[Rfam]
RNA: RNase MRP
Organism: Solanum lycopersicum
RNA sequence: GGACUGCAAGACGACGUGAAUGGGUCAAGGUUCACUCAUUGGGUGGGCCAGGACCCAGGAAAGUCCCCGGGCCAUCUCUGCAGAGAUGCAGGUUCGGUAACGAACGAGCUUCACGGGCUCUAGGAGUUUAAGCCCAUUGGGCUUGGGCUGAGACAAGGUGGAGCCUACAACUCCUGCUCGGGAGCGAUAUUGGCCAGUUCGACAGUGAUUCACGUGGCCCACUGGGCUUAACUGAACGGGGCUUAUGAUCUUGCAGUC
Dot-bracket structure: .((((((((((..((((((..((((...(((((((((...)))))))))...))))....[[[.[[[[..........((((....)))).(((((....)))))..(((...(.((.(...((((((........................................)))))).).)).).)))........................)))))).(.((....)).).........]]]]]]]....))))))))))